[Rfam]
Nucleotides: 063
Base pairs, nucleotide, nucleotide: 003059004058005057006056007055008054009053010052011051012050013049014048015047016046018044019043021041022040023039026038027037028036029035
Number, partner (000 for none) and nucleotide at each position: 001000u002000a003059g004058c005057a006056g007055c008054g009053g010052g011051a012050a013049c014048a015047g016046u017000a018044c019043u020000g021041c022040a023039g024000u025000g026038g027037g028036c029035a030000a031000u032000c033000g034000g035029u036028g037027u038026u039023c040022u041021g042000g043019a044018g045000u046016a047015u048014u049013g050012u051011u052010u053009c054008u055007g056006c057005u058004g059003c060000c061000c062000g063000g
Annotation
The family of this 63-nucleotide RNA from Canis lupus is "mir-503 microRNA precursor family". Lineage of the source: Eukaryota > Craniata > Dipnotetrapodomorpha > Canis > Canis lupus. For this family Rfam cites "The expression profile of microRNAs in mouse embryos" (Mineno et al., Nucleic Acids Res, 2006).